[Rfam]
Rfam assigns this 160-nucleotide sequence from Durio zibethinus to the family "MIR530 microRNA precursor family". The literature on the family includes a 2008 paper in Plant J by Lu et al., "Stress-responsive microRNAs in Populus". Its family is annotated with miRNA-mediated post-transcriptional gene silencing and RISC complex in the Gene Ontology. The match comes from Rfam's covariance-model search (98 bits). The family has 3 seed sequences and 119 matches in Rfam 15.1. The family's consensus secondary structure was predicted with WAR. The source organism's lineage runs through Eukaryota, Euphyllophyta, eudicotyledons, malvids and Durio.

RNA sequence: GCUAAGAUGUAGCCUUUAUCUGCAUUUGCACCUGCACCUUCUUGUUUUUAAUUGGUUCGGCUUCAGAAACCAAAGCAUUGCAGAUGGUUUUGUAGUGGUGAAGGAAGAUAGGACCAAGCAAAGAGGUGCAGGUUCAGGUGCAGGUGAAUGCCAUUUUGGC
Numbered sequence: 001g002c003u004a005a006g007a008u009g010u011a012g013c014c015u016u017u018a019u020c021u022g023c024a025u026u027u028g029c030a031c032c033u034g035c036a037c038c039u040u041c042u043u044g045u046u047u048u049u050a051a052u053u054g055g056u057u058c059g060g061c062u063u064c065a066g067a068a069a070c071c072a073a074a075g076c077a078u079u080g081c082a083g084a085u086g087g088u089u090u091u092g093u094a095g096u097g098g099u100g101a102a103g104g105a106a107g108a109u110a111g112g113a114c115c116a117a118g119c120a121a122a123g124a125g126g127u128g129c130a131g132g133u134u135c136a137g138g139u140g141c142a143g144g145u146g147a148a149u150g151c152c153a154u155u156u157u158g159g160c
Stems, first nucleotide, its partner, number of pairs: 001160009012151002015148014030133010054070001056068003059064001